[Rfam]
RNA sequence: CUCUGGAGAGAGGCGCGCCGGACGCGUCCGCCGAAGGGAUAGCGAUCUCAGGCAAGAAGGACAGAG
Numbered sequence: 001c002u003c004u005g006g007a008g009a010g011a012g013g014c015g016c017g018c019c020g021g022a023c024g025c026g027u028c029c030g031c032c033g034a035a036g037g038g039a040u041a042g043c044g045a046u047c048u049c050a051g052g053c054a055a056g057a058a059g060g061a062c063a064g065a066g
Stems, first nucleotide, its partner, number of pairs: 001066005012028004030053003033049002037047002
Rfam assigns this 66-nucleotide RNA sequence from Lutimaribacter saemankumensis to the family "Glycine riboswitch aptamer". NCBI's taxonomy places the organism under Bacteria, Pseudomonadati, Pseudomonadota, Roseobacteraceae, Lutimaribacter. The match comes from Rfam's covariance-model search (36 bits).